The family of this 221-nucleotide sequence from Cellulomonas fimi is "Actinobacteria sRNA Ms_IGR-5".

RNA sequence: ACACGGGAAGGAGGUGGUCCGGAACAUGAAGCAUUCCAGGACGCGUGAGGUGACUGUCCGCUAGUCGCCCGACAGCUCGGGACGGACUGGUCGUCCGCCCGUUGUCGUCACCGGGAACGGUGGGGGCGGCGAGCGAAUACCGGCAGUCACCGCAGCCCGUGGGAGCCGCGAUCUCGUCCACCGCGGCAGGACCGAGAGGUCCGGCCCACGGGCUGUCCCGU
Dot-bracket structure: ............((((((..................................))))))((((.((.((((.....................................................)))).)).)))).................(((((((((((...((((.(.......).))))...................)))))))))))......

The match comes from Rfam's covariance-model search (72 bits). The source organism's lineage runs through Bacteria, Bacillati, Actinomycetes, Cellulomonas and Cellulomonas fimi.